[Rfam]
RNA sequence: GGCUGCAGUGACGACUCAGGAAUAUUCAAGCUCAACAGACCGGAUUGCAGGUCUCUCUUUGUCGAGGGAUUUGUAUGUCGACUAUCCCGCUGACCCGAGCAUUC
Dot-bracket structure: ((.(((............................................................................................))).))
Numbered sequence: 001g002g003c004u005g006c007a008g009u010g011a012c013g014a015c016u017c018a019g020g021a022a023u024a025u026u027c028a029a030g031c032u033c034a035a036c037a038g039a040c041c042g043g044a045u046u047g048c049a050g051g052u053c054u055c056u057c058u059u060u061g062u063c064g065a066g067g068g069a070u071u072u073g074u075a076u077g078u079c080g081a082c083u084a085u086c087c088c089g090c091u092g093a094c095c096c097g098a099g100c101a102u103u104c
Stems, first nucleotide, its partner, number of pairs: 001104002004101003

Rfam assigns this 104-nucleotide sequence from Ensete ventricosum to the family "Small nucleolar RNA Z107/R87". Pairs were carried over by alignment from the consensus structure, which was predicted with RNAfold. It is annotated as a C/D-box small nucleolar RNA.